[Rfam]
RNA sequence: CAAGCAGAUCACCUUAUCGCUGUCUUGAUCUAUAUCAGGAGAGAGGAAAGUCCGGACACCAUAGCUCAGUAUAGCGGGUAAUGCCCGUCCAUUGCAAAAUGAGGACAAGUGCAACAGAAAGUAUGUACAGGUAAGGCUGUAGUGAAACCAGGUAAACUCUAUACGGUGCAACGUCAUGUAUACUAACUUUUGAGGGUUGAGCGCCCAACGUUAGAGGGUAGACGGUUUGAUUUUGAUAGUAAUGUCAAAACUAGAUAAAUGAUAAGGAUCCACUUUUAUGGUUACAGAAUCCGGCUUAUGAUCUGCUUUUUUA
Numbered sequence: 001c002a003a004g005c006a007g008a009u010c011a012c013c014u015u016a017u018c019g020c021u022g023u024c025u026u027g028a029u030c031u032a033u034a035u036c037a038g039g040a041g042a043g044a045g046g047a048a049a050g051u052c053c054g055g056a057c058a059c060c061a062u063a064g065c066u067c068a069g070u071a072u073a074g075c076g077g078g079u080a081a082u083g084c085c086c087g088u089c090c091a092u093u094g095c096a097a098a099a100u101g102a103g104g105a106c107a108a109g110u111g112c113a114a115c116a117g118a119a120a121g122u123a124u125g126u127a128c129a130g131g132u133a134a135g136g137c138u139g140u141a142g143u144g145a146a147a148c149c150a151g152g153u154a155a156a157c158u159c160u161a162u163a164c165g166g167u168g169c170a171a172c173g174u175c176a177u178g179u180a181u182a183c184u185a186a187c188u189u190u191u192g193a194g195g196g197u198u199g200a201g202c203g204c205c206c207a208a209c210g211u212u213a214g215a216g217g218g219u220a221g222a223c224g225g226u227u228u229g230a231u232u233u234u235g236a237u238a239g240u241a242a243u244g245u246c247a248a249a250a251c252u253a254g255a256u257a258a259a260u261g262a263u264a265a266g267g268a269u270c271c272a273c274u275u276u277u278a279u280g281g282u283u284a285c286a287g288a289a290u291c292c293g294g295c296u297u298a299u300g301a302u303c304u305g306c307u308u309u310u311u312u313a
Stems, first nucleotide, its partner, number of pairs: 002308010012267007020043002023040006048297003052294005057168004064202004069164005074088005089103001090101004104159002109157002111153002172224004183214005194206004231250008
Dot-bracket structure: .(((((((((((((((((.((.((((((......)))))).))....[[[.[[[[[((((...[[[[.((((((((((.....)))))(((((....)))).)((...((((.......................................))..)))))))))))))...((((.......(((((......((((.]]]]))))...)))))......))))......((((((((....))))))))..........)))))))......................]]]]]]]].)))))))))).....
Shown here is a 313-nucleotide RNA from Aquimarina sp. RZ0, a member of the family "Bacterial RNase P class A". Its Rfam clan is "RNaseP clan". Rfam classes the family as a ribozyme. About the family: Ribonuclease P (RNase P) is a ubiquitous endoribonuclease, found in archaea, bacteria and eukarya as well as chloroplasts and mitochondria. The family's consensus secondary structure is taken from published work.